[Rfam]
RNA sequence: CAGCAGGAGUUAGUCCUGUCAGGGGAAGAGCCAGAACCCUUCUAGCUUGAAUGGCAGACAAGAGGGAAACCAAAUGUCUGAAGCCCAUUGACAAAGCCUCUUUUAGAGAGGUGAGUGAGUUGCCGGGCCGUAACGAGA
Numbered sequence: 001c002a003g004c005a006g007g008a009g010u011u012a013g014u015c016c017u018g019u020c021a022g023g024g025g026a027a028g029a030g031c032c033a034g035a036a037c038c039c040u041u042c043u044a045g046c047u048u049g050a051a052u053g054g055c056a057g058a059c060a061a062g063a064g065g066g067a068a069a070c071c072a073a074a075u076g077u078c079u080g081a082a083g084c085c086c087a088u089u090g091a092c093a094a095a096g097c098c099u100c101u102u103u104u105a106g107a108g109a110g111g112u113g114a115g116u117g118a119g120u121u122g123c124c125g126g127g128c129c130g131u132a133a134c135g136a137g138a
Stems, first nucleotide, its partner, number of pairs: 021041004050089005055080006064071002096112006115131003